Background:
A member of the RNA family "Twister_sister_ribozyme", 74 nucleotides long. Rfam's curators put it in the seed alignment. For this family Rfam cites "New classes of self-cleaving ribozymes revealed by comparative genomics analysis" (Weinberg et al., Nat Chem Biol, 2015).
RNA sequence: AUAAGGCCCAAGGCCCAGUCCCGUGGAAGCCGGGACCGCCCCCUUCGGGGGGCGCGGCGCUGACAGCCGGAACG
Numbered sequence: 001a002u003a004a005g006g007c008c009c010a011a012g013g014c015c016c017a018g019u020c021c022c023g024u025g026g027a028a029g030c031c032g033g034g035a036c037c038g039c040c041c042c043c044u045u046c047g048g049g050g051g052g053c054g055c056g057g058c059g060c061u062g063a064c065a066g067c068c069g070g071a072a073c074g
Stems, first nucleotide, its partner, number of pairs: 005068003013058003016029001018036001020034003037054006